[Rfam]
RNA sequence: ACACGAGAAGGGAGGUGGUCCGACGUUGAUUAGCGACAGGACUCGUGAGGUGGCUGUCCGCUAGGCACCAACAGGACGUCUUCCUGACGGCCAGUGGAAGCCGGUAGGUGCCGGCGAAUCCCAGGCGGUCACCAGUGUUCCCCGGGCCCGAGCCCAGUCCAGCUCGGCGUGCGCUCCCCGUUCCGACGGGGUUGCGGCCCGGGGAUCACUCAUG
Numbered sequence: 001a002c003a004c005g006a007g008a009a010g011g012g013a014g015g016u017g018g019u020c021c022g023a024c025g026u027u028g029a030u031u032a033g034c035g036a037c038a039g040g041a042c043u044c045g046u047g048a049g050g051u052g053g054c055u056g057u058c059c060g061c062u063a064g065g066c067a068c069c070a071a072c073a074g075g076a077c078g079u080c081u082u083c084c085u086g087a088c089g090g091c092c093a094g095u096g097g098a099a100g101c102c103g104g105u106a107g108g109u110g111c112c113g114g115c116g117a118a119u120c121c122c123a124g125g126c127g128g129u130c131a132c133c134a135g136u137g138u139u140c141c142c143c144g145g146g147c148c149c150g151a152g153c154c155c156a157g158u159c160c161a162g163c164u165c166g167g168c169g170u171g172c173g174c175u176c177c178c179c180g181u182u183c184c185g186a187c188g189g190g191g192u193u194g195c196g197g198c199c200c201g202g203g204g205a206u207c208a209c210u211c212a213u214g
Base pairs, nucleotide, nucleotide: 014058015057016056017055018054019053059116060115061114062113064111067109068108069107072103074101136208137207139205140204141203142202143201144200145199146198147197148196149166150165151164152163153162